[Rfam]
Nucleotides: 124
Base pairs, nucleotide, nucleotide: 006018007017008016009015021060022059023058027054028053030051032049038046081111082110083109084108085107086106089102090101091100093098
Number, partner (000 for none) and nucleotide at each position: 001000a002000c003000c004000a005000c006018c007017c008016u009015u010000u011000u012000c013000u014000u015009g016008g017007g018006g019000u020000u021060g022059u023058g024000c025000u026000a027054c028053u029000g030051u031000a032049c033000a034000a035000u036000g037000a038046g039000c040000u041000c042000a043000u044000a045000a046038c047000g048000a049032g050000g051030g052000a053028a054027g055000c056000a057000c058023u059022g060021c061000u062000a063000a064000c065000a066000c067000c068000u069000a070000c071000a072000u073000a074000c075000g076000u077000g078000c079000c080000u081111g082110c083109a084108u085107c086106a087000a088000c089102u090101a091100g092000a093098g094000c095000u096000u097000g098093u099000c100091u101090u102089a103000c104000c105000u106086u107085g108084g109083u110082g111081c112000a113000a114000u115000u116000u117000u118000u119000a120000g121000a122000a123000a124000a

Shown here is a 124-nucleotide sequence from Carlito syrichta, a member of the family "U4atac minor spliceosomal RNA". About the family: U4atac is an essential component of the minor U12-type spliceosome complex which is required for removal of the rarer class of eukaryotic introns (AT-AC, U12-type). A reference for the family is Lorkovic et al. (2005), "Evolutionary conservation of minor U12-type spliceosome between plants and humans", RNA. Gene Ontology terms of the family: spliceosomal tri-snRNP complex assembly, mRNA 5'-splice site recognition and U4atac snRNP. It is annotated as a spliceosomal small nuclear RNA. A search with the family's covariance model found it, with a score of 67 bits. Taxonomically the source falls in Carlito (Eukaryota, Craniata, Boreoeutheria, Tarsiidae).